[Rfam]
RNA: Streptomyces-metK RNA
RNA sequence: GCUGGACAGGAGGUCCGCAGGGAGCAAAGGCCGGAUAAACUGACACCGGUCCGUGCACGAGCGCAGCUCUCGUCCGGAACCGCCAAUGAUCAGCCAGCAGCCGCUGCAACCCCAGGGAG
Dot-bracket structure: ...............................................((((((....((((.......))))..))).))).............((((....)))).............